[Rfam]
RNA sequence: AACCACACUAUCAAUGAAUGAAUUCACCUGUGAGAUGACGUGGUUGUUCCACCUAGGAUGAGGACGAGGCAUCCUAUUAAAUUCGUGCGAUGGCUGGUAAUAGGAUGCCACGUCCUUAUCCUAAGUGGAACAGCCACGUCAUAUCACGAGUUAAUCCUUUCAUUGAUAGUGUGGUU
Numbered sequence: 001a002a003c004c005a006c007a008c009u010a011u012c013a014a015u016g017a018a019u020g021a022a023u024u025c026a027c028c029u030g031u032g033a034g035a036u037g038a039c040g041u042g043g044u045u046g047u048u049c050c051a052c053c054u055a056g057g058a059u060g061a062g063g064a065c066g067a068g069g070c071a072u073c074c075u076a077u078u079a080a081a082u083u084c085g086u087g088c089g090a091u092g093g094c095u096g097g098u099a100a101u102a103g104g105a106u107g108c109c110a111c112g113u114c115c116u117u118a119u120c121c122u123a124a125g126u127g128g129a130a131c132a133g134c135c136a137c138g139u140c141a142u143a144u145c146a147c148g149a150g151u152u153a154a155u156c157c158u159u160u161c162a163u164u165g166a167u168a169g170u171g172u173g174g175u176u
Stems, first nucleotide, its partner, number of pairs: 001176007009168007017160002022155003026151002030147004035142005041136008051126002054123002057120002063114003069108011086097001